[Rfam]
RNA sequence: UGGUAGAUGCACCCUGAUUCAACAUUCCCCCAGGCUCACGCGAUUGAGUUUUGGGGGAUUUCUUU
Numbered sequence: 001u002g003g004u005a006g007a008u009g010c011a012c013c014c015u016g017a018u019u020c021a022a023c024a025u026u027c028c029c030c031c032a033g034g035c036u037c038a039c040g041c042g043a044u045u046g047a048g049u050u051u052u053g054g055g056g057g058a059u060u061u062c063u064u065u
Stems, first nucleotide, its partner, number of pairs: 002013003027057007
About this RNA: This 65-nucleotide sequence from Thermoleptolyngbya sichuanensis belongs to the Rfam family "Nitrogen stress-induced RNA 1". On this family, see Ionescu et al., J Mol Biol 2010: "Heterocyst-specific transcription of NsiR1, a non-coding RNA encoded in a tandem array of direct repeats in cyanobacteria". The organism belongs to Thermoleptolyngbya sichuanensis, within Bacteria.